Streptomyces RNA 1601: a 208-nucleotide sequence from Streptomyces microflavus. On this family, see Vockenhuber et al., RNA Biol 2011: "Deep sequencing-based identification of small non-coding RNAs in Streptomyces coelicolor". It scores 180 bits against the family's covariance model.

[Rfam]
RNA sequence: AACGACCGGCCGGACACCUAUGUGCCCGGCCCACAAGUGGAGGCUCCGAUCUCCCACCCGACUGUCCUCACGGACGGCGGGUCACCGGUCAGGCGGUCCCCAUCGUUCCGUACGGACGAUGGAGCCGCUCGAUGCGCCCCGCGGUUGACCGCGGCGGUGCUCCGGUAUUUCCAGGAGCCCCGCCUGUGUCCCGUCCGGGGCAUUUUUG
Numbered sequence: 001a002a003c004g005a006c007c008g009g010c011c012g013g014a015c016a017c018c019u020a021u022g023u024g025c026c027c028g029g030c031c032c033a034c035a036a037g038u039g040g041a042g043g044c045u046c047c048g049a050u051c052u053c054c055c056a057c058c059c060g061a062c063u064g065u066c067c068u069c070a071c072g073g074a075c076g077g078c079g080g081g082u083c084a085c086c087g088g089u090c091a092g093g094c095g096g097u098c099c100c101c102a103u104c105g106u107u108c109c110g111u112a113c114g115g116a117c118g119a120u121g122g123a124g125c126c127g128c129u130c131g132a133u134g135c136g137c138c139c140c141g142c143g144g145u146u147g148a149c150c151g152c153g154g155c156g157g158u159g160c161u162c163c164g165g166u167a168u169u170u171c172c173a174g175g176a177g178c179c180c181c182g183c184c185u186g187u188g189u190c191c192c193g194u195c196c197g198g199g200g201c202a203u204u205u206u207u208g
Base pairs, nucleotide, nucleotide: 004090005089006088007087008086009085012027013026028083029082030081031080032079034060037057038056039055040054041052042051062077063076064075065074066073067072092129093128094127095126096125100122101121102120103119104118105117106116107115136201137200138199139198140197141196142193143192144191150188151187152186153184154183155182156181157180159178160177161176162175163174

NCBI's taxonomy places the organism under Bacteria, Bacillati, Actinomycetes, Kitasatosporales, Streptomyces. Rfam classes the family as a small RNA. Rfam's curators write: Identified by deep sequencing of transcriptome at the end of exponential growth phase. Appears longer on northern blot than sequencing transcript. Streptomyces specific.